[Rfam]
RNA: c-di-AMP riboswitch aptamer (ydaO/yuaA leader)
Organism: Streptomyces griseoviridis
RNA sequence: GUCGCGCAAGCGCCGAAGGCAGGAGCGGGGGACCCAAGGUAAGUGCCGCACCGGGCAGUUGACCGGAGCGGCUUGGGGUUAAGCCGUGCCUCUCACCCAGGCGCGGCCGGGCACUCAACCGGCCCGAACCCGACAGCUCACCUCGCAGGCGUCGGUGAGGGGAUCA
Numbered sequence: 001g002u003c004g005c006g007c008a009a010g011c012g013c014c015g016a017a018g019g020c021a022g023g024a025g026c027g028g029g030g031g032a033c034c035c036a037a038g039g040u041a042a043g044u045g046c047c048g049c050a051c052c053g054g055g056c057a058g059u060u061g062a063c064c065g066g067a068g069c070g071g072c073u074u075g076g077g078g079u080u081a082a083g084c085c086g087u088g089c090c091u092c093u094c095a096c097c098c099a100g101g102c103g104c105g106g107c108c109g110g111g112c113a114c115u116c117a118a119c120c121g122g123c124c125c126g127a128a129c130c131c132g133a134c135a136g137c138u139c140a141c142c143u144c145g146c147a148g149g150c151g152u153c154g155g156u157g158a159g160g161g162g163a164u165c166a
Stems, first nucleotide, its partner, number of pairs: 011151004025146006035075004076131003084106007109125004